[Rfam]
RNA: Histone 3' UTR stem-loop
RNA sequence: CCAAAGGCUCUUUUCAGAGCCACCCACUUGAUCGAAAGAGAGCUAG
Numbered sequence: 001c002c003a004a005a006g007g008c009u010c011u012u013u014u015c016a017g018a019g020c021c022a023c024c025c026a027c028u029u030g031a032u033c034g035a036a037a038g039a040g041a042g043c044u045a046g
Stems, first nucleotide, its partner, number of pairs: 006021006